The family of this 220-nucleotide RNA is "Group II catalytic intron D1-D4-6". It is one of the family's seed sequences.

[Rfam]
RNA sequence: AAAAUCCCGCCCGGCAAAGGCUGGCCACCAGCCGGAAGCGAGUCUUGCGUGGUGGUGGGGCGACCCACCCUACGAGGCGUAGACAGCGAGAGUGAAGGCCGUGUGAUAGAGCCUCGAAAGGACCGCAUUGACGAGGCCAGCGUGCUCAAGACGAGCGCUGGCAGCACCCGAGCGCUGCGAACUGGCCAGGCGCAUUGGGCUCGUCCGGGGUCUGAGAGCA
Numbered sequence: 001a002a003a004a005u006c007c008c009g010c011c012c013g014g015c016a017a018a019g020g021c022u023g024g025c026c027a028c029c030a031g032c033c034g035g036a037a038g039c040g041a042g043u044c045u046u047g048c049g050u051g052g053u054g055g056u057g058g059g060g061c062g063a064c065c066c067a068c069c070c071u072a073c074g075a076g077g078c079g080u081a082g083a084c085a086g087c088g089a090g091a092g093u094g095a096a097g098g099c100c101g102u103g104u105g106a107u108a109g110a111g112c113c114u115c116g117a118a119a120g121g122a123c124c125g126c127a128u129u130g131a132c133g134a135g136g137c138c139a140g141c142g143u144g145c146u147c148a149a150g151a152c153g154a155g156c157g158c159u160g161g162c163a164g165c166a167c168c169c170g171a172g173c174g175c176u177g178c179g180a181a182c183u184g185g186c187c188a189g190g191c192g193c194a195u196u197g198g199g200c201u202c203g204u205c206c207g208g209g210g211u212c213u214g215a216g217a218g219c220a
Base pairs, nucleotide, nucleotide: 011035012034013033014032019029020028022188023187024186025185038087039086042084043083044082045081046079047078048074049073050072051071054069055068056067057066058065059064109212111211112210113209114208115207116206130205131204132203133202134201135200136162137161138160141157142156143155167199168198169197170196171195172193173192174191175190176189